[Rfam]
RNA sequence: ACAAACUCACUCUGUGCCUAGUUGGAGUCCCAAGCCAGGGCUUUUUCUGUCUGCCACAGAAACAUUCCCAGGUGCUGUAAUUACUUUGACCUGUCAAGGACGAUGCGACUGAGCAGGGACACAGGG
Numbered sequence: 001a002c003a004a005a006c007u008c009a010c011u012c013u014g015u016g017c018c019u020a021g022u023u024g025g026a027g028u029c030c031c032a033a034g035c036c037a038g039g040g041c042u043u044u045u046u047c048u049g050u051c052u053g054c055c056a057c058a059g060a061a062a063c064a065u066u067c068c069c070a071g072g073u074g075c076u077g078u079a080a081u082u083a084c085u086u087u088g089a090c091c092u093g094u095c096a097a098g099g100a101c102g103a104u105g106c107g108a109c110u111g112a113g114c115a116g117g118g119a120c121a122c123a124g125g126g
Stems, first nucleotide, its partner, number of pairs: 002053002005050002014041002017039003022033003066119004071114001074109001076107004082102001085099002

Shown here is a 126-nucleotide RNA from Pteropus alecto, a member of the family "Small nucleolar RNA SNORA77". The match comes from Rfam's covariance-model search (58 bits). It is annotated as an H/ACA-box small nucleolar RNA. A reference for the family is Schattner et al. (2006), "A computational screen for mammalian pseudouridylation guide H/ACA RNAs", RNA. Rfam describes the family as follows. ACA63 (SNORA77) is a member of the H/ACA class of snoRNAs that guide the sites of modification of uridines to pseudouridines. NCBI's taxonomy places the organism under Eukaryota, Teleostomi, Yinpterochiroptera, Pteropodidae, Pteropus.